[Rfam]
The record is a 60-nucleotide RNA from Pararge aegeria, which matches "mir-14 microRNA precursor family" in Rfam. Pairs were carried over by alignment from the consensus structure, which was predicted with RNAalifold. Gene Ontology terms of the family: miRNA-mediated post-transcriptional gene silencing and RISC complex. It scores 55 bits against the family's covariance model.
RNA sequence: UGUCGGUGGGAGGAAUCGGCUUGACUUUUUUUAUCAGUCAGUCUUUUUCUCUCUCCUAUA
Numbered sequence: 001u002g003u004c005g006g007u008g009g010g011a012g013g014a015a016u017c018g019g020c021u022u023g024a025c026u027u028u029u030u031u032u033a034u035c036a037g038u039c040a041g042u043c044u045u046u047u048u049c050u051c052u053c054u055c056c057u058a059u060a
Stems, first nucleotide, its partner, number of pairs: 001060003005056002008053001010051004015046001018043004024038003
Dot-bracket structure: (((.((.(.((((.(..((((..(((.........))).))))..).)))).).)).)))